Rfam assigns this 84-nucleotide RNA sequence from Parambassis ranga to the family "Small nucleolar RNA SNORD100". Rfam classes the family as a C/D-box small nucleolar RNA.

[Rfam]
RNA sequence: GUUGUCAGUGAUGAUAAUUUGGCUCCCUCUACUGAACACCGUGAGGAGAUUGCCAAUGUCACCCUUUUUUUUGUCUGAGACACU
Numbered sequence: 001g002u003u004g005u006c007a008g009u010g011a012u013g014a015u016a017a018u019u020u021g022g023c024u025c026c027c028u029c030u031a032c033u034g035a036a037c038a039c040c041g042u043g044a045g046g047a048g049a050u051u052g053c054c055a056a057u058g059u060c061a062c063c064c065u066u067u068u069u070u071u072u073g074u075c076u077g078a079g080a081c082a083c084u
Stems, first nucleotide, its partner, number of pairs: 001084001003082004
Overview: Clan: SNORD100 clan. Taxonomically the source falls in Parambassis (Eukaryota, Metazoa, Chordata, Teleostomi).